[Rfam]
RNA: U2 spliceosomal RNA
Organism: Pyrus ussuriensis x Pyrus communis
RNA sequence: UUAUUUUUCUCUACCUUUUUGGCUAAGAUCAAGUGUAGUAUAUGUCCUUAUCAGUUUAAUAUUUGAUAAGUGGUCCACAUGGUAUUAAAUUCAUUUAUUCUAGGGCCCACCAGGGUGACUUCCAUUGGGGAUUCCAAGUGUCGCCCAUGCAGUGCACUAUUGCCUGGAGGACCCUAACUUGA
Numbered sequence: 001u002u003a004u005u006u007u008u009c010u011c012u013a014c015c016u017u018u019u020u021g022g023c024u025a026a027g028a029u030c031a032a033g034u035g036u037a038g039u040a041u042a043u044g045u046c047c048u049u050a051u052c053a054g055u056u057u058a059a060u061a062u063u064u065g066a067u068a069a070g071u072g073g074u075c076c077a078c079a080u081g082g083u084a085u086u087a088a089a090u091u092c093a094u095u096u097a098u099u100c101u102a103g104g105g106c107c108c109a110c111c112a113g114g115g116u117g118a119c120u121u122c123c124a125u126u127g128g129g130g131a132u133u134c135c136a137a138g139u140g141u142c143g144c145c146c147a148u149g150c151a152g153u154g155c156a157c158u159a160u161u162g163c164c165u166g167g168a169g170g171a172c173c174c175u176a177a178c179u180u181g182a
Base pairs, nucleotide, nucleotide: 008028009027010026014022015021049068050067051066052065053064054063070078071077072076103134104133105132107130108129110127114125117122137175138174140172141171142170145167146166147165149163150162
Dot-bracket structure: .......(((...((.....))...)))....................((((((........)))))).(((...)))........................(((.((.(...(..(....)..).).)).)))..((.(((..(((.((...........)).)))..))).)).......